[Rfam]
RNA sequence: GUCGCUGAACGGGCGAUCGCUCGUGAAAGCGAGAGGAAAGUCCGGUCUCCACAGGGCAACAUGCCGGCUAACGGCCGGGAGGGGUUGGCCAUAUCCGACCUUUACGGAAAGUGCCACAGAAAACGUACCGCCUGUAACGCUGGGGAGACUCAGCGUGAAAGGUAAGGGUGAAAAGGUGCGGUAAGAGCGCACCGCGGCGGGAGUGAUUCCGCUGGCAGGGUAAACCCCAUGCGGAGCAAGACCAAAUAGGGGAGCAGGGGCGGCCCGUUCCAAUAACUCCCGGGUAGGUCGCUAGAGCUUUUUAGUAAUGGAAAGCCCAGACGAAUGGUCGCCACCAGUUCCAACUGGCACAGAAACCGGCUUACAGUUCAGCGAUAUAU
Numbered sequence: 001g002u003c004g005c006u007g008a009a010c011g012g013g014c015g016a017u018c019g020c021u022c023g024u025g026a027a028a029g030c031g032a033g034a035g036g037a038a039a040g041u042c043c044g045g046u047c048u049c050c051a052c053a054g055g056g057c058a059a060c061a062u063g064c065c066g067g068c069u070a071a072c073g074g075c076c077g078g079g080a081g082g083g084g085u086u087g088g089c090c091a092u093a094u095c096c097g098a099c100c101u102u103u104a105c106g107g108a109a110a111g112u113g114c115c116a117c118a119g120a121a122a123a124c125g126u127a128c129c130g131c132c133u134g135u136a137a138c139g140c141u142g143g144g145g146a147g148a149c150u151c152a153g154c155g156u157g158a159a160a161g162g163u164a165a166g167g168g169u170g171a172a173a174a175g176g177u178g179c180g181g182u183a184a185g186a187g188c189g190c191a192c193c194g195c196g197g198c199g200g201g202a203g204u205g206a207u208u209c210c211g212c213u214g215g216c217a218g219g220g221u222a223a224a225c226c227c228c229a230u231g232c233g234g235a236g237c238a239a240g241a242c243c244a245a246a247u248a249g250g251g252g253a254g255c256a257g258g259g260g261c262g263g264c265c266c267g268u269u270c271c272a273a274u275a276a277c278u279c280c281c282g283g284g285u286a287g288g289u290c291g292c293u294a295g296a297g298c299u300u301u302u303u304a305g306u307a308a309u310g311g312a313a314a315g316c317c318c319a320g321a322c323g324a325a326u327g328g329u330c331g332c333c334a335c336c337a338g339u340u341c342c343a344a345c346u347g348g349c350a351c352a353g354a355a356a357c358c359g360g361c362u363u364a365c366a367g368u369u370c371a372g373c374g375a376u377a378u379a380u
Stems, first nucleotide, its partner, number of pairs: 001376010011365001012333007020033005038363003042360005047236004054266004060231004064078005079105001080103009106227002111225002113221003128167002130163004135158001137156008175193006194216001195214008240290004250281005257271005297316008
Record summary: A member of the RNA family "Bacterial RNase P class A" from a Bryobacteraceae bacterium, 380 nucleotides long. The match comes from Rfam's covariance-model search (296 bits). It is annotated as a ribozyme.